[Rfam]
RNA sequence: CCCGAGGAAUCGGGACGAAAUGUGGGUCGGCGUCGAACGCCGCCCGAAUCGAAAG
Numbered sequence: 001c002c003c004g005a006g007g008a009a010u011c012g013g014g015a016c017g018a019a020a021u022g023u024g025g026g027u028c029g030g031c032g033u034c035g036a037a038c039g040c041c042g043c044c045c046g047a048a049u050c051g052a053a054a055g
Stems, first nucleotide, its partner, number of pairs: 001014005016051003024045003028042005
eL15-Euryarchaeota ribosomal protein leader: a 55-nucleotide RNA from Halobellus rufus. The source organism's lineage runs through Archaea, Methanobacteriati, Halobacteria, Haloferacaceae and Halobellus. For this family Rfam cites "Discovery of 20 novel ribosomal leader candidates in bacteria and archaea" (Eckert and Weinberg, BMC Microbiol, 2020). It is one of the family's seed sequences.